Rfam assigns this 163-nucleotide RNA from Tripterygium wilfordii to the family "small nucleolar RNA snoR143". The family's RNA type in Rfam is H/ACA-box small nucleolar RNA. Rfam links the family to the GO terms RNA processing and nucleolus.
RNA sequence: CACUACUUUGUAUCAUAGGUCUCUCUAAUUCUGUACUGGUGUGGCCUUGAGCAAGGGUGCAUAAAUUAAGGCUGUUUGUUCAGCAGUGGUUAGACAACCAUGAGAUGGUUCCAAUGAUUGAUGGCUCAUAAUGCUGUUGGCCUACUAAUUCCAUCUUUUUACA
Numbered sequence: 001c002a003c004u005a006c007u008u009u010g011u012a013u014c015a016u017a018g019g020u021c022u023c024u025c026u027a028a029u030u031c032u033g034u035a036c037u038g039g040u041g042u043g044g045c046c047u048u049g050a051g052c053a054a055g056g057g058u059g060c061a062u063a064a065a066u067u068a069a070g071g072c073u074g075u076u077u078g079u080u081c082a083g084c085a086g087u088g089g090u091u092a093g094a095c096a097a098c099c100a101u102g103a104g105a106u107g108g109u110u111c112c113a114a115u116g117a118u119u120g121a122u123g124g125c126u127c128a129u130a131a132u133g134c135u136g137u138u139g140g141c142c143u144a145c146u147a148a149u150u151c152c153a154u155c156u157u158u159u160u161a162c163a
Base pairs, nucleotide, nucleotide: 004059005058006057009053010052011051013050014049015048017047018046019045020044021043023041025039026038027037102157103156104155105154106153107152108151119140121138123134
Dot-bracket structure: ...(((..(((.(((.(((((.(.(((.........))).).)))))))))))...)))..........................................(((((((..........(.(.(..........)...).)..........)))))))......